[Rfam]
RNA sequence: CGCCGCUUGGAGCCUCAUGCGAGAAUCAUCGGCUGGGACGGGGGAACCAACAGCGAUCACGGAAGUGAUCUUGGGGUGAAGUGCGGGCCGCGCGAUGCGGACCGCGCCGGGCAUUCUCCGCCCGAACCCGACAGCUCACCUCGGCGGCUGAGGAGACAUUUGUG
Numbered sequence: 001c002g003c004c005g006c007u008u009g010g011a012g013c014c015u016c017a018u019g020c021g022a023g024a025a026u027c028a029u030c031g032g033c034u035g036g037g038a039c040g041g042g043g044g045a046a047c048c049a050a051c052a053g054c055g056a057u058c059a060c061g062g063a064a065g066u067g068a069u070c071u072u073g074g075g076g077u078g079a080a081g082u083g084c085g086g087g088c089c090g091c092g093c094g095a096u097g098c099g100g101a102c103c104g105c106g107c108c109g110g111g112c113a114u115u116c117u118c119c120g121c122c123c124g125a126a127c128c129c130g131a132c133a134g135c136u137c138a139c140c141u142c143g144g145c146g147g148c149u150g151a152g153g154a155g156a157c158a159u160u161u162g163u164g
Stems, first nucleotide, its partner, number of pairs: 001037001003035001039143005048073002074129003082106004109123004